[Rfam]
RNA sequence: CCAGCCAAGCCUCUCGCAGAAGCUCAAACCGGCUGGG
Numbered sequence: 001c002c003a004g005c006c007a008a009g010c011c012u013c014u015c016g017c018a019g020a021a022g023c024u025c026a027a028a029c030c031g032g033c034u035g036g037g
Base pairs, nucleotide, nucleotide: 001036002035003034004033005032006031008024009023010022
A member of the RNA family "abiF RNA", 37 nucleotides long. The base pairs follow the family's consensus structure, which is taken from published work. The family's RNA type in Rfam is small RNA. Rfam's curators write: Actinobacteria, Bacteroidetes, Clostridia, Proteobacteria, one Clostridia phage.